[Rfam]
RNA sequence: UUCUUAUCAAGAGAGGUUGAGGGAAGGGCCCUGUGACACCUCAGCAACCUUCAAUGUUUAUUCUCAUUGAAAAGGUGCUAAGUCCUGCAAAUUUAUUAAUUUGCUAGAUAAGAA
Numbered sequence: 001u002u003c004u005u006a007u008c009a010a011g012a013g014a015g016g017u018u019g020a021g022g023g024a025a026g027g028g029c030c031c032u033g034u035g036a037c038a039c040c041u042c043a044g045c046a047a048c049c050u051u052c053a054a055u056g057u058u059u060a061u062u063c064u065c066a067u068u069g070a071a072a073a074g075g076u077g078c079u080a081a082g083u084c085c086u087g088c089a090a091a092u093u094u095a096u097u098a099a100u101u102u103g104c105u106a107g108a109u110a111a112g113a114a
Stems, first nucleotide, its partner, number of pairs: 001114008013042005021031003026086003043079004048075002050071007083106001088103006
Rfam assigns this 114-nucleotide sequence to the family "SAM riboswitch aptamer (S box leader)". The match comes from Rfam's covariance-model search (98 bits).